[Rfam]
Shown here is a 115-nucleotide RNA sequence from Streptomyces corynorhini, a member of the family "SAM (S-adenosyl methionine) riboswitch aptamer". The organism belongs to Streptomyces, within Bacteria. It scores 95 bits against the family's covariance model. SAM-IV is a mRNA element that regulates gene expression via direct sensing of S-adenosylmethionine (SAM or AdoMet). SAM-IV riboswitches share conserved nucleotide positions with the previously described SAM-I riboswitches sequence analysis and molecular recognition experiments suggest that SAM-I and SAM-IV riboswitches share similar ligand binding sites, but have different scaffolds.

RNA sequence: GGCAUCGAGUGUCAGCGUCAAGCCCUGGCUUGCUGACCGGCAACCCUCCGACGCGGUGGGGUGCUCCAGGUGAAAGCCCGGCAGGGGUCAUCGGUGAUCCCGGCAAGCGUCUGCC
Numbered sequence: 001g002g003c004a005u006c007g008a009g010u011g012u013c014a015g016c017g018u019c020a021a022g023c024c025c026u027g028g029c030u031u032g033c034u035g036a037c038c039g040g041c042a043a044c045c046c047u048c049c050g051a052c053g054c055g056g057u058g059g060g061g062u063g064c065u066c067c068a069g070g071u072g073a074a075a076g077c078c079c080g081g082c083a084g085g086g087g088u089c090a091u092c093g094g095u096g097a098u099c100c101c102g103g104c105a106a107g108c109g110u111c112u113g114c115c
Base pairs, nucleotide, nucleotide: 001078002077003076009038011037012036013035014034015033016032021030022029039065040064041063044061045060046059048056049055081104082103084101085100086099087098088097089096090095